[Rfam]
RNA sequence: AGUAGGAGCCCCCUUUAAGGGCUUUCGGUGUGGUGGCACGCCACAUCAAAAGCGAUUUUAAGUAGUGAAGUAGCUACGUGUAACGUAGUGAGCUAGCUGCGAGAGAGUCUUUAAAGGGGGUGACUGCGUACCUUUUGUAUAAUGG
Dot-bracket structure: .((((..(((((((((((((((((((............................................................................)))))))))))))))))))..))))...(.(........).).

The family of this 145-nucleotide part of an RNA from Oligella urethralis is "Bacterial large subunit ribosomal RNA". A search with the family's covariance model found it, with a score of 2781 bits. Gene Ontology terms of the family: ribosome and structural constituent of ribosome.